[Rfam]
RNA sequence: AGAAAGUGCCUUUCAGGCAUCCUCUCCUAAUACUACGGUCGGUCGUUAAGACCGACCUUUUUUUUAUUCUGA
Numbered sequence: 001a002g003a004a005a006g007u008g009c010c011u012u013u014c015a016g017g018c019a020u021c022c023u024c025u026c027c028u029a030a031u032a033c034u035a036c037g038g039u040c041g042g043u044c045g046u047u048a049a050g051a052c053c054g055a056c057c058u059u060u061u062u063u064u065u066a067u068u069c070u071g072a
Stems, first nucleotide, its partner, number of pairs: 008018004037057008
Shown here is a 72-nucleotide RNA sequence from Zymomonas mobilis, a member of the family "Makes More Granules Regulator RNA (mmgR)".
It is annotated as a small RNA.
Clan: suhB sRNA clan.
A reference for the family is Lagares et al. (2017), "Regulation of Polyhydroxybutyrate Accumulation in Sinorhizobium meliloti by the Trans-Encoded Small RNA MmgR", J Bacteriol.
The sequence is in the family's curated seed alignment.
The pairing is the family consensus, mapped onto this sequence.
Rfam 15.1 lists 1,791 matches to the family in 918 species.